[Rfam]
RNA sequence: GGUCAUGAGUGCCAGCGAUAAGCCCCGGCUUGCUGGCCGGCAACCCUCCAACCGCGGUGGGGUGCCCCGGGAGACGACCAGGUUGAGUAGCCGGCCACGGCUAUAAGGCAAGCGCGGGUC
Numbered sequence: 001g002g003u004c005a006u007g008a009g010u011g012c013c014a015g016c017g018a019u020a021a022g023c024c025c026c027g028g029c030u031u032g033c034u035g036g037c038c039g040g041c042a043a044c045c046c047u048c049c050a051a052c053c054g055c056g057g058u059g060g061g062g063u064g065c066c067c068c069g070g071g072a073g074a075c076g077a078c079c080a081g082g083u084u085g086a087g088u089a090g091c092c093g094g095c096c097a098c099g100g101c102u103a104u105a106a107g108g109c110a111a112g113c114g115c116g117g118g119u120c
Stems, first nucleotide, its partner, number of pairs: 001079004009038001011037006021030002039066003044062003048057002082109003087104007
RNA: SAM (S-adenosyl methionine) riboswitch aptamer